[Rfam]
RNA: MIR5284 microRNA precursor family
Organism: Medicago truncatula
RNA sequence: CUGUAAUUUCAGAUACCUCCACUUUUGGUCCCUCAUUUCAUGAGCCAUGUAUGCAGAUUUUUUUGACGUGGUGAAAUUAGGGACCAAAAGUGGAAGAAUAUGAAAUUACAA
Numbered sequence: 001c002u003g004u005a006a007u008u009u010c011a012g013a014u015a016c017c018u019c020c021a022c023u024u025u026u027g028g029u030c031c032c033u034c035a036u037u038u039c040a041u042g043a044g045c046c047a048u049g050u051a052u053g054c055a056g057a058u059u060u061u062u063u064u065g066a067c068g069u070g071g072u073g074a075a076a077u078u079a080g081g082g083a084c085c086a087a088a089a090g091u092g093g094a095a096g097a098a099u100a101u102g103a104a105a106u107u108a109c110a111a
Base pairs, nucleotide, nucleotide: 004108005107006106007105008104009103010102011101013099014098016096018094019093020092021091022090023089024088025087026086027085028084029083030082031081032080033079035077036076037075038074039073044072045071046070047069048068049067050066053063055061056060